[Rfam]
RNA sequence: AAACGAGCAAUAAUCAUUUUCUUGUUCCGUCAAAAGGGUGUUAUUGCUCCUUUUUUU
Dot-bracket structure: (((.((((((((((....((.(((......))).))...)))))))))).)))....